[Rfam]
RNA sequence: AAACACUUCAGGGAUAGGUGAAAUUCCUUACCGGCGGUAGGCAUGAAAAUGCGAGCCCGCGAGCGAAAGCAGAUCCGGUCAGAUUCCGGAGCCGACAGUACAGUCUGGAUGGAAGAUAGUGUAU
Numbered sequence: 001a002a003a004c005a006c007u008u009c010a011g012g013g014a015u016a017g018g019u020g021a022a023a024u025u026c027c028u029u030a031c032c033g034g035c036g037g038u039a040g041g042c043a044u045g046a047a048a049a050u051g052c053g054a055g056c057c058c059g060c061g062a063g064c065g066a067a068a069g070c071a072g073a074u075c076c077g078g079u080c081a082g083a084u085u086c087c088g089g090a091g092c093c094g095a096c097a098g099u100a101c102a103g104u105c106u107g108g109a110u111g112g113a114a115g116a117u118a119g120u121g122u123a124u
Stems, first nucleotide, its partner, number of pairs: 003122005008116002016028003030104002032094002034060004055092002063070002074090005096107003

A member of the RNA family "FMN riboswitch aptamer (RFN element)" from Ruminiclostridium cellobioparum, 124 nucleotides long. Pairs were carried over by alignment from the consensus structure, which is taken from published work. From the family's description: The RFN element is a highly conserved domain that is found frequently in the 5'-untranslated regions of prokaryotic mRNAs that encode for flavin mononucleotide (FMN) biosynthesis and transport proteins. The literature on the family includes a 1999 paper in Trends Genet by Gelfand et al., "A conserved RNA structure element involved in the regulation of bacterial riboflavin synthesis genes". The organism belongs to Ruminiclostridium cellobioparum subsp. termitidis, within Bacteria.